Background: The family of this 113-nucleotide RNA from Tatumella ptyseos is "Fumarate/nitrate reductase regulator sRNA". The literature on the family includes a 2010 paper in Mol Microbiol by Durand and Storz, "Reprogramming of anaerobic metabolism by the FnrS small RNA". The organism belongs to Tatumella ptyseos, within Bacteria. The family's consensus secondary structure is taken from published work.
RNA sequence: GCAGGUGAAUGCAACGUCAAGCGAUGGGCGUUGUGCUCCACAUUGUCUUACUUUUGAAUUACUGCAUAGCACAUUUAAUUCUUAUGACCCCGGCGUUAGUGACGCCGGUUUUU
Numbered sequence: 001g002c003a004g005g006u007g008a009a010u011g012c013a014a015c016g017u018c019a020a021g022c023g024a025u026g027g028g029c030g031u032u033g034u035g036c037u038c039c040a041c042a043u044u045g046u047c048u049u050a051c052u053u054u055u056g057a058a059u060u061a062c063u064g065c066a067u068a069g070c071a072c073a074u075u076u077a078a079u080u081c082u083u084a085u086g087a088c089c090c091c092g093g094c095g096u097u098a099g100u101g102a103c104g105c106c107g108g109u110u111u112u113u
Base pairs, nucleotide, nucleotide: 001046002045003044004043007038008037010035011034012033013032014031015030016029017028018027056081057080058079059078060077061076063071064070065069090108091107092106093105094104095103096102
Dot-bracket structure: ((((..((.(((((((((........))))))))).))....)))).........((((((.(((...)))....))))))........(((((((.....))))))).....